[Rfam]
RNA sequence: UGUGACACACAUUAAAGGUGUAGUUCCCCACCCAUGAGCCACUUUACCAUAUUUCGAGAAC
Number, nucleotide and partner (000 for none) at each position: 001u000002g000003u000004g000005a000006c000007a000008c000009a000010c000011a000012u000013u000014a000015a000016a000017g045018g044019u000020g042021u041022a000023g039024u038025u037026c036027c000028c000029c000030a000031c000032c000033c000034a000035u000036g026037a025038g024039c023040c000041a021042c020043u000044u018045u017046a000047c000048c000049a000050u000051a000052u000053u000054u000055c000056g000057a000058g000059a000060a000061c000
The record is a 61-nucleotide RNA from Cucumis melo, which matches "Plastid-psbN 5UTR RNA" in Rfam. Plastid psbN is a non-coding RNA (ncRNA) recognised in plastids. It was reported as a conserved 11 stem-loop in the prime untranslated region (5UTR) of psbN genes. It has been reported that the motif is retained in a subset of mature transcripts in barley, which can suggests a possible role in transcript alternative 5 prime processing. The family's consensus secondary structure was predicted with LocARNA. The match comes from Rfam's covariance-model search (55 bits).